[Rfam]
RNA sequence: UUUGGGGUGACCCAUGCACUGAAGUAAGCCAAACGGCAAACGUCUGAACUGACGAACAGGAACGGGAUAUGAGGCACAGCUGCUCGGGUGAGCAAGCACACCAUUGCAAAGCCCAACGAAUACAAACAGGGUAGCUAUGUAGAUCCCGCAGGGUUAGACGGAAGGACAUUUAC
Numbered sequence: 001u002u003u004g005g006g007g008u009g010a011c012c013c014a015u016g017c018a019c020u021g022a023a024g025u026a027a028g029c030c031a032a033a034c035g036g037c038a039a040a041c042g043u044c045u046g047a048a049c050u051g052a053c054g055a056a057c058a059g060g061a062a063c064g065g066g067a068u069a070u071g072a073g074g075c076a077c078a079g080c081u082g083c084u085c086g087g088g089u090g091a092g093c094a095a096g097c098a099c100a101c102c103a104u105u106g107c108a109a110a111g112c113c114c115a116a117c118g119a120a121u122a123c124a125a126a127c128a129g130g131g132u133a134g135c136u137a138u139g140u141a142g143a144u145c146c147c148g149c150a151g152g153g154u155u156a157g158a159c160g161g162a163a164g165g166a167c168a169u170u171u172a173c
Stems, first nucleotide, its partner, number of pairs: 001016001003014004028173001031170002037165001041160006049151003063148006074140003078136007086114004092107004
RNA: Group II catalytic intron D1-D4-3